[Rfam]
This 134-nucleotide RNA from Actinoplanes cyaneus belongs to the Rfam family "c-di-AMP riboswitch aptamer (ydaO/yuaA leader)".

RNA sequence: GACGAGCCACCGCCCAAUCGCCGCGAGGCGAGCCGGGGACCCAGGUUCCUCGGGGUGAAGCCGCGGUGACGCGGCCGGGUGUGCUUCCCGCCCGAACCCGUCAGCUAACCCGGUCGGCGGCCGAGAGGAAGAAA
Numbered sequence: 001g002a003c004g005a006g007c008c009a010c011c012g013c014c015c016a017a018u019c020g021c022c023g024c025g026a027g028g029c030g031a032g033c034c035g036g037g038g039a040c041c042c043a044g045g046u047u048c049c050u051c052g053g054g055g056u057g058a059a060g061c062c063g064c065g066g067u068g069a070c071g072c073g074g075c076c077g078g079g080u081g082u083g084c085u086u087c088c089c090g091c092c093c094g095a096a097c098c099c100g101u102c103a104g105c106u107a108a109c110c111c112g113g114u115c116g117g118c119g120g121c122c123g124a125g126a127g128g129a130a131g132a133a134a
Base pairs, nucleotide, nucleotide: 011119012118013117014116018031019030020029021028022027032114033113034112035111036110037109042052053099054098055097061074062073063072064071077093078092079091080090